[Rfam]
RNA: T-box leader
Organism: Roseburia sp. 1XD42-69
RNA sequence: AUAAAGUCAGUGAGCAAAGAUAGUACUGUAAAAAGUUUCUUUUCAGAGAGCCGUCGGCUGGUGUGAGACGGCAGGAAGUUUUACAGGAAUGGGUUUGUGAGACGCAAAGCGAAUGAUAGUAGCGGAUGCCGUUUUCCCUACGUUACAGGGGUGAGAUAUCGAAUCGCAGAUUCCGUAUCAAGAGAUUGUAAGAUUGGUGGCAGGCAUUUUCCGUAUCGGUGAAUGCUUUUUUUGUCCUCAAAUUCUAUGUAUUGUCUGCCAAAAUUGCAAUGAAGACUGGGUGGCACCACGAGAAAUUCGUCCCGGAU
Numbered sequence: 001a002u003a004a005a006g007u008c009a010g011u012g013a014g015c016a017a018a019g020a021u022a023g024u025a026c027u028g029u030a031a032a033a034a035g036u037u038u039c040u041u042u043u044c045a046g047a048g049a050g051c052c053g054u055c056g057g058c059u060g061g062u063g064u065g066a067g068a069c070g071g072c073a074g075g076a077a078g079u080u081u082u083a084c085a086g087g088a089a090u091g092g093g094u095u096u097g098u099g100a101g102a103c104g105c106a107a108a109g110c111g112a113a114u115g116a117u118a119g120u121a122g123c124g125g126a127u128g129c130c131g132u133u134u135u136c137c138c139u140a141c142g143u144u145a146c147a148g149g150g151g152u153g154a155g156a157u158a159u160c161g162a163a164u165c166g167c168a169g170a171u172u173c174c175g176u177a178u179c180a181a182g183a184g185a186u187u188g189u190a191a192g193a194u195u196g197g198u199g200g201c202a203g204g205c206a207u208u209u210u211c212c213g214u215a216u217c218g219g220u221g222a223a224u225g226c227u228u229u230u231u232u233u234g235u236c237c238u239c240a241a242a243u244u245c246u247a248u249g250u251a252u253u254g255u256c257u258g259c260c261a262a263a264a265u266u267g268c269a270a271u272g273a274a275g276a277c278u279g280g281g282u283g284g285c286a287c288c289a290c291g292a293g294a295a296a297u298u299c300g301u302c303c304c305g306g307a308u
Stems, first nucleotide, its partner, number of pairs: 007102002015097004026086006039075003050072006105128002109123002130142003185271007278305004289301005
Dot-bracket structure: ......((......((((.......((((((.......(((........((((((...........))))))))).....)))))).......))))...))..((..((...........))...)).(((.......)))..........................................(((((((.........................................................................)))))))......((((.......(((((...)))))))))...